Annotation:
Shown here is a 74-nucleotide RNA from Chlorogloeopsis fritschii, a member of the family "Fluoride riboswitch aptamer (crcB RNA motif)". The source organism's lineage runs through Bacteria, Bacillati, Cyanophyceae, Chlorogloeopsidaceae and Chlorogloeopsis fritschii. The family's consensus secondary structure is taken from published work.
Nucleotides: 074
Base pairs, nucleotide, nucleotide: 010025011024012023013022016065017064018063019062020061021060032055033054034053035052
Number, partner (000 for none) and nucleotide at each position: 001000u002000a003000a004000u005000a006000a007000u008000c009000a010025g011024g012023c013022g014000a015000u016065g017064g018063a019062g020061c021060u022013c023012g024011c025010c026000a027000u028000a029000a030000c031000c032055g033054c034053c035052u036000u037000a038000a039000g040000u041000a042000u043000u044000g045000a046000a047000u048000a049000g050000a051000a052035a053034g054033g055032c056000u057000g058000a059000u060021g061020g062019c063018u064017c065016c066000u067000a068000c069000u070000u071000u072000u073000c074000c